[Rfam]
A member of the RNA family "Bacterial RNase P class A" from Cocleimonas flava, 358 nucleotides long. The organism belongs to Cocleimonas, within Bacteria. Gene Ontology terms of the family: dimeric ribonuclease P complex, tRNA processing and ribonuclease P activity. By type it is a ribozyme.
RNA sequence: UGAGUUGACCGAGCAAUCGCGCUUCAGGCUAGUCCUGAAUCGAGGAAAGUCCGGGCUCCAUAGGGUAGGACGCCAGAUAACGUCUGGGCAGCGCAAGCUGACGGCUAGUGCAGCAGAGAGAAGACCGCCUUAUUAUCUUCGGGUAGUGAGGUAAGGGUGAAAGGGUGCGGUAAGAGCGCACCGCACAACUGGUAACAGUUUGUGGCAAGGUAAACCCCGUCCGGAGCAAGAUCAAAUAGGGAUGCAAUAGGUGUGUACCCGCACUGCAUCCGGGUAGAUCGCUUGAGGUGUGCGGCGACGUAUCAUCCAGAUGAAUGAUUGUUCACGACAGAACCCGGCUUAUAGGUCAACUCACACU
Numbered sequence: 001u002g003a004g005u006u007g008a009c010c011g012a013g014c015a016a017u018c019g020c021g022c023u024u025c026a027g028g029c030u031a032g033u034c035c036u037g038a039a040u041c042g043a044g045g046a047a048a049g050u051c052c053g054g055g056c057u058c059c060a061u062a063g064g065g066u067a068g069g070a071c072g073c074c075a076g077a078u079a080a081c082g083u084c085u086g087g088g089c090a091g092c093g094c095a096a097g098c099u100g101a102c103g104g105c106u107a108g109u110g111c112a113g114c115a116g117a118g119a120g121a122a123g124a125c126c127g128c129c130u131u132a133u134u135a136u137c138u139u140c141g142g143g144u145a146g147u148g149a150g151g152u153a154a155g156g157g158u159g160a161a162a163g164g165g166u167g168c169g170g171u172a173a174g175a176g177c178g179c180a181c182c183g184c185a186c187a188a189c190u191g192g193u194a195a196c197a198g199u200u201u202g203u204g205g206c207a208a209g210g211u212a213a214a215c216c217c218c219g220u221c222c223g224g225a226g227c228a229a230g231a232u233c234a235a236a237u238a239g240g241g242a243u244g245c246a247a248u249a250g251g252u253g254u255g256u257a258c259c260c261g262c263a264c265u266g267c268a269u270c271c272g273g274g275u276a277g278a279u280c281g282c283u284u285g286a287g288g289u290g291u292g293c294g295g296c297g298a299c300g301u302a303u304c305a306u307c308c309a310g311a312u313g314a315a316u317g318a319u320u321g322u323u324c325a326c327g328a329c330a331g332a333a334c335c336c337g338g339c340u341u342a343u344a345g346g347u348c349a350a351c352u353c354a355c356a357c358u
Base pairs, nucleotide, nucleotide: 001354002353003352004351005350006349007348008347009346010345011343012323013322014321015320016319017318018317020042021041023039024038025037026036027035028034047341048340049339051338052337053336054335055334056226057225058224059223063259064258066257068222069221070220071219072218073087074086075085076084077083088102089100090099091098092097103217104216108215109214110211111210125156126155127152128151129150130149131148132147133146134145135144136143137142164182165181166180167179168178169177183206184204185203186202187201188200189198190197191196230280231279232278233277240271241270242269243268244267245266251264252263253262254261255260287306290303291302292301293300294299